mir-194 microRNA precursor family: an 81-nucleotide RNA from Tupaia belangeri.

[Rfam]
RNA sequence: UGGAGUUAUCAAGUGUAACAGCAACUCCACGUGGACUGAAUACCGAUUUCCAGUGGAGAUGGUGUUACUUCUGAUGAUUAC
Numbered sequence: 001u002g003g004a005g006u007u008a009u010c011a012a013g014u015g016u017a018a019c020a021g022c023a024a025c026u027c028c029a030c031g032u033g034g035a036c037u038g039a040a041u042a043c044c045g046a047u048u049u050c051c052a053g054u055g056g057a058g059a060u061g062g063u064g065u066u067a068c069u070u071c072u073g074a075u076g077a078u079u080a081c
Stems, first nucleotide, its partner, number of pairs: 009074003015068006022061001025058006032052003